[Rfam]
RNA sequence: AGUCGAUGCGUUUGACGGUUUCUCCUCCCAGUACCGUCGCGUCGGCUGUUCCCCUCUGGAGGUUCAGACCUUCACACCUAAAGGGCCCAGGCUUUUGCUUGUGGCCCUCUUUU
Numbered sequence: 001a002g003u004c005g006a007u008g009c010g011u012u013u014g015a016c017g018g019u020u021u022c023u024c025c026u027c028c029c030a031g032u033a034c035c036g037u038c039g040c041g042u043c044g045g046c047u048g049u050u051c052c053c054c055u056c057u058g059g060a061g062g063u064u065c066a067g068a069c070c071u072u073c074a075c076a077c078c079u080a081a082a083g084g085g086c087c088c089a090g091g092c093u094u095u096u097g098c099u100u101g102u103g104g105c106c107c108u109c110u111u112u113u
Stems, first nucleotide, its partner, number of pairs: 001047005007041003015037004057074007082108006088101004
Rfam assigns this 113-nucleotide RNA from Mycoplana dimorpha to the family "Alphaproteobacterial ar15". The literature on the family includes a 2013 paper in PLoS One by Torres-Quesada et al., "Independent activity of the homologous small regulatory RNAs AbcR1 and AbcR2 in the legume symbiont Sinorhizobium meliloti". Taxonomically the source falls in Mycoplana (Bacteria, Pseudomonadota, Alphaproteobacteria, Hyphomicrobiales). Pairs were carried over by alignment from the consensus structure. Clan: suhB sRNA clan.